[Rfam]
RNA sequence: ACUGUGGAGUGUUAUACAAACACAAGUAGAGUGAUAUUUCUCAAAAGUGGAUACAGUAAAGCAGUAA
Numbered sequence: 001a002c003u004g005u006g007g008a009g010u011g012u013u014a015u016a017c018a019a020a021c022a023c024a025a026g027u028a029g030a031g032u033g034a035u036a037u038u039u040c041u042c043a044a045a046a047g048u049g050g051a052u053a054c055a056g057u058a059a060a061g062c063a064g065u066a067a
Stems, first nucleotide, its partner, number of pairs: 001065005009054005021049003029042003
RNA: RAGATH-18 RNA